The family of this 72-nucleotide RNA from Artemisia annua is "Small nucleolar RNA Z105". Rfam 15.1 lists 621 matches to the family in 204 species.
RNA sequence: CGAGCAUAAUGAUGAUUGUUUUUAUUCCGAUUUAUUUCAUGAUUGGAUUAUCAAACCUCCUACUCAUUCUGA
Numbered sequence: 001c002g003a004g005c006a007u008a009a010u011g012a013u014g015a016u017u018g019u020u021u022u023u024a025u026u027c028c029g030a031u032u033u034a035u036u037u038c039a040u041g042a043u044u045g046g047a048u049u050a051u052c053a054a055a056c057c058u059c060c061u062a063c064u065c066a067u068u069c070u071g072a
Stems, first nucleotide, its partner, number of pairs: 006067002009064001028046001031041001

For this family Rfam cites "The high diversity of snoRNAs in plants: identification and comparative study of 120 snoRNA genes from Oryza sativa" (Chen et al., Nucleic Acids Res, 2003).
It scores 50 bits against the family's covariance model.
The family's RNA type in Rfam is C/D-box small nucleolar RNA.